[Rfam]
RNA: Small nucleolar RNA U83B
Organism: Scyliorhinus torazame
RNA sequence: AGAAUUCUGUGAUGAUGACGUGGAAUAUAUGUUGGUAACAACAUCUGACUCUAAUGAGGAGCUAUUCCAUGCUGCCUUCCUUCUGAGAUGUUCU
Numbered sequence: 001a002g003a004a005u006u007c008u009g010u011g012a013u014g015a016u017g018a019c020g021u022g023g024a025a026u027a028u029a030u031g032u033u034g035g036u037a038a039c040a041a042c043a044u045c046u047g048a049c050u051c052u053a054a055u056g057a058g059g060a061g062c063u064a065u066u067c068c069a070u071g072c073u074g075c076c077u078u079c080c081u082u083c084u085g086a087g088a089u090g091u092u093c094u
Base pairs, nucleotide, nucleotide: 001094002093003092004091005090